[Rfam]
RNA sequence: AGAGCGGGCCGGGCGGCCGCCGGAUGUUUCGGCAUCCGGAGGAAAGUCCGGGCAGGACAGGACACGGUGACGGCUAACAGCCGCCCGGGGCGACCCGCGGGAAAGUGCCGCAGAAAAUACACAGCCGAUGGCCCUUACGGGCACAGGCAAUGGUGAAAUGGUGCGGUAAGAGCGCACCGCGAAUCCGGCAACGGGUUCGGCACGGCAAACCCCACCGCCUGCAAGACCAAGCAUGCCGGUGCCUUCGUCCGGGCAAUACCGGCGGGUAGGUCGCUUGCCAUAAAAGCAGAGCCGGCCGGCAACGGUCGGUCAAGUUAGAUGGCCGCCAGAUACAGAACCCGGCUUACAGGCCCGCUCUCAUU
Dot-bracket structure: ((((((((((((((((((.((((((((....))))))))....[[[.[[[[[((((........(((((.((((.....)))).(((((....)))).)((...(((((............(((((..((((((....)))).)))))..)).......((((((.......))))))(((((((((....)))))))).)..)))..)))))))))))))...((((......((((((......((....))...)))))).....))))..................((((((((....))))))))..........)))))))..........]]]]]]]].).))))))))))....
This 362-nucleotide RNA sequence from Limihaloglobus sulfuriphilus belongs to the Rfam family "Bacterial RNase P class A". Taxonomically the source falls in Limihaloglobus (Bacteria, Pseudomonadati, Planctomycetota, Sedimentisphaeraceae). The family's RNA type in Rfam is ribozyme. Ribonuclease P (RNase P) is a ubiquitous endoribonuclease, found in archaea, bacteria and eukarya as well as chloroplasts and mitochondria. The base pairs follow the family's consensus structure, which is taken from published work.